Shown here is a 124-nucleotide RNA from Hipposideros armiger, a member of the family "Small nucleolar RNA SNORA77". For this family Rfam cites "A computational screen for mammalian pseudouridylation guide H/ACA RNAs" (Schattner et al., RNA, 2006). The family's consensus secondary structure was predicted with RNAalifold. Taxonomically the source falls in Hipposideros (Eukaryota, Eumetazoa, Sarcopterygii, Yinpterochiroptera). The family has 19 seed sequences and 843 matches in Rfam 15.1. ACA63 (SNORA77) is a member of the H/ACA class of snoRNAs that guide the sites of modification of uridines to pseudouridines. This snoRNA was identified by computational screening and its expression in mouse experimentally verified by Northern blot and primer extension analysis. A search with the family's covariance model found it, with a score of 97 bits. It is annotated as an H/ACA-box small nucleolar RNA.
RNA sequence: GCAGACUCACUCUGUACCUGGCUGCAGUCCCAUGUGGGUGAUUUUUCCGUCUGCCACAUAACAUUCUGGGUGCUGUGAAUACCUUGACCUGUCAAGGGUCACACAGCUGCUUGGAGACGAGGUG
Numbered sequence: 001g002c003a004g005a006c007u008c009a010c011u012c013u014g015u016a017c018c019u020g021g022c023u024g025c026a027g028u029c030c031c032a033u034g035u036g037g038g039u040g041a042u043u044u045u046u047c048c049g050u051c052u053g054c055c056a057c058a059u060a061a062c063a064u065u066c067u068g069g070g071u072g073c074u075g076u077g078a079a080u081a082c083c084u085u086g087a088c089c090u091g092u093c094a095a096g097g098g099u100c101a102c103a104c105a106g107c108u109g110c111u112u113g114g115a116g117a118c119g120a121g122g123u124g
Stems, first nucleotide, its partner, number of pairs: 001054006015040006023032002065115007072107006081099004